MIR396 microRNA precursor family: a 128-nucleotide sequence from Trifolium subterraneum. Its family is annotated with miRNA-mediated post-transcriptional gene silencing and RISC complex in the Gene Ontology. It scores 91 bits against the family's covariance model. The family has 26 seed sequences and 744 matches in Rfam 15.1. Taxonomically the source falls in Trifolium (Eukaryota, Tracheophyta, rosids, Hologalegina).
RNA sequence: CUUUGUAUUCUUCCACAGCUUUCUUGAACUGCAUCAAAAUUAAGAGUUAAAUUGCAUGCAUGUAAUGGCACUCUUUGUGUUCUACUCAUUGUUUUGCGGUUCAAUAAAGCUGUGGGAAGAUACAGAUA
Numbered sequence: 001c002u003u004u005g006u007a008u009u010c011u012u013c014c015a016c017a018g019c020u021u022u023c024u025u026g027a028a029c030u031g032c033a034u035c036a037a038a039a040u041u042a043a044g045a046g047u048u049a050a051a052u053u054g055c056a057u058g059c060a061u062g063u064a065a066u067g068g069c070a071c072u073c074u075u076u077g078u079g080u081u082c083u084a085c086u087c088a089u090u091g092u093u094u095u096g097c098g099g100u101u102c103a104a105u106a107a108a109g110c111u112g113u114g115g116g117a118a119g120a121u122a123c124a125g126a127u128a
Base pairs, nucleotide, nucleotide: 003125004124005123006122007121013115014114015113017111018110019109020108021107022106024104025103026102027101029099030098031097032096033095